About this RNA:
Shown here is a 365-nucleotide RNA sequence from Bifidobacterium adolescentis, a member of the family "Bacterial RNase P class A". Its family is annotated with dimeric ribonuclease P complex, ribonuclease P activity and tRNA processing in the Gene Ontology. Rfam classes the family as a ribozyme. The source organism's lineage runs through Bacteria, Actinomycetota, Actinomycetes, Bifidobacteriales and Bifidobacterium adolescentis.

RNA sequence: UGAGACCUCUUGAUGGCCGCGACCGAUUUUGUCGGUUGAGGAACUUCCGGGCUCCAUAGAGCACGAUGGCGGAUAACGUCCGCCCAGGGCGACCUGAGAGAUAGCGCAGCAGAGAAUAGACCGCCUUACCGGUUUCGGCCGGUGGGUAAGGGUGAAACGGCGGUGUAAGAGACCACCGGGCCGCUGGUGACAGUUGGCCGCAUGGCAAGCCUCAUCGGGAGCAAGGCCAAGCAGAAGGCGUUCGAGGACUGCUCGUCCGAAGCCUUCGGGUAGGCUGCUAGAGCCUGACGGCAACGCCAGGUCGAGAUGGAUGGCCAUCCGUGCCGUUGGCACGACAGAACCCGGGGUAUAAGAGGUCUCACUCU
Numbered sequence: 001u002g003a004g005a006c007c008u009c010u011u012g013a014u015g016g017c018c019g020c021g022a023c024c025g026a027u028u029u030u031g032u033c034g035g036u037u038g039a040g041g042a043a044c045u046u047c048c049g050g051g052c053u054c055c056a057u058a059g060a061g062c063a064c065g066a067u068g069g070c071g072g073a074u075a076a077c078g079u080c081c082g083c084c085c086a087g088g089g090c091g092a093c094c095u096g097a098g099a100g101a102u103a104g105c106g107c108a109g110c111a112g113a114g115a116a117u118a119g120a121c122c123g124c125c126u127u128a129c130c131g132g133u134u135u136c137g138g139c140c141g142g143u144g145g146g147u148a149a150g151g152g153u154g155a156a157a158c159g160g161c162g163g164u165g166u167a168a169g170a171g172a173c174c175a176c177c178g179g180g181c182c183g184c185u186g187g188u189g190a191c192a193g194u195u196g197g198c199c200g201c202a203u204g205g206c207a208a209g210c211c212u213c214a215u216c217g218g219g220a221g222c223a224a225g226g227c228c229a230a231g232c233a234g235a236a237g238g239c240g241u242u243c244g245a246g247g248a249c250u251g252c253u254c255g256u257c258c259g260a261a262g263c264c265u266u267c268g269g270g271u272a273g274g275c276u277g278c279u280a281g282a283g284c285c286u287g288a289c290g291g292c293a294a295c296g297c298c299a300g301g302u303c304g305a306g307a308u309g310g311a312u313g314g315c316c317a318u319c320c321g322u323g324c325c326g327u328u329g330g331c332a333c334g335a336c337a338g339a340a341c342c343c344g345g346g347g348u349a350u351a352a353g354a355g356g357u358c359u360c361a362c363u364c365u
Base pairs, nucleotide, nucleotide: 001361002360003359004358005357006356007355008354009353010352012319013318014317015316016315017314018313020038021037022036023035024034025033026032027031043348044347045346047345048344049343050342051341052221053220054219055218059254060253061252062251064217065216066215067214068213069083070082071081072080073079084098085096086095087094088093099212100211104210105209106206107205121151122150123147124146125145128143129142130141131140132139133138159177160176162174163173164172178201179199180198181197182196183195184193185192186191225276226275227274228273234267235266236265237264238263239262246258247257248256249255283302284301285300286299287298289296290295